[Rfam]
RNA sequence: GGUAGAGUGAGCUCUAAUCCAAUAUUACUAGCUUCUUUAUAAGAAGAGGAAACUAGUAAUGUUGGAUUAGGGCUCACUCUACU
Numbered sequence: 001g002g003u004a005g006a007g008u009g010a011g012c013u014c015u016a017a018u019c020c021a022a023u024a025u026u027a028c029u030a031g032c033u034u035c036u037u038u039a040u041a042a043g044a045a046g047a048g049g050a051a052a053c054u055a056g057u058a059a060u061g062u063u064g065g066a067u068u069a070g071g072g073c074u075c076a077c078u079c080u081a082c083u
Base pairs, nucleotide, nucleotide: 001083002082003081004080005079006078007077008076009075010074011073012072013071014070015069016068017067018066019065020064021063022062023061024060025059026058027057028056029055030054031053033051034050035049036048037047038046
Dot-bracket structure: (((((((((((((((((((((((((((((((.((((((.......)))))).)))))))))))))))))))))))))))))))
Shown here is an 83-nucleotide sequence from Homo sapiens, a member of the family "mir-3923 microRNA precursor family". The family's consensus secondary structure was predicted with RNAalifold. Rfam links the family to the GO terms RISC complex and miRNA-mediated post-transcriptional gene silencing. It is one of the family's seed sequences. Taxonomically the source falls in Homo (Eukaryota, Craniata, Boreoeutheria, Primates).